[Rfam]
RNA sequence: AUCACCCAGGGAUCUUGCAAAAAGGCAGAUUCUGAUCCAGCGAAUCUAGGGCAGGGCCAAAGAUUCUGCAUUUCUAACACGUUUCCAGGUGAUGCUAA
Numbered sequence: 001a002u003c004a005c006c007c008a009g010g011g012a013u014c015u016u017g018c019a020a021a022a023a024g025g026c027a028g029a030u031u032c033u034g035a036u037c038c039a040g041c042g043a044a045u046c047u048a049g050g051g052c053a054g055g056g057c058c059a060a061a062g063a064u065u066c067u068g069c070a071u072u073u074c075u076a077a078c079a080c081g082u083u084u085c086c087a088g089g090u091g092a093u094g095c096u097a098a
Stems, first nucleotide, its partner, number of pairs: 003091003009085003014081001016079002020075001021073003025069005031063003

mir-544 microRNA precursor family: a 98-nucleotide sequence from Panthera leo.
Rfam links the family to the GO terms miRNA-mediated post-transcriptional gene silencing and RISC complex.
The base pairs follow the family's consensus structure, which was predicted with RNAalifold.
The match comes from Rfam's covariance-model search (72 bits).